[Rfam]
RNA sequence: GGGGAGGCCGGAUCCUGGGCUGUGUCCCGGCACCCUGUGCCCGGGUCUGCGCUGGUGGAUUUGGGCUCCCGGGCCGCGCAGCCCCCU
Number, nucleotide and partner (000 for none) at each position: 001g085002g084003g083004g082005a000006g000007g079008c078009c076010g075011g074012a000013u000014c072015c071016u000017g069018g068019g067020c000021u065022g000023u063024g062025u059026c058027c057028c054029g053030g052031c051032a000033c049034c000035c000036u000037g047038u000039g046040c045041c000042c000043g000044g000045g040046u039047c037048u000049g033050c000051g031052c030053u029054g028055g000056u000057g027058g026059a025060u000061u000062u024063g023064g000065g021066c000067u019068c018069c017070c000071g015072g014073g000074c011075c010076g009077c000078g008079c007080a000081g000082c004083c003084c002085c001086c000087u000
RNA: mir-8799 microRNA precursor family
Organism: Canis lupus